[Rfam]
RNA: SAM-I/IV (S-adenosyl methionine) riboswitch aptamer
Organism: Prevotella sp. CAG:1092
RNA sequence: AUGAAACAUCAAGAGCAGUUAAUUCUGCACCAACCGAGCAUUGACAGCUACGGUGGUCCAGUUACGAUGUGGAAGUAUUAAUUUAUUAACUUCAAAAAAAUGUCAUUAU
Dot-bracket structure: .....(((((....((((......))))(((..((((((.[.[...))).))).)))........))))).((((..............)))).........].]....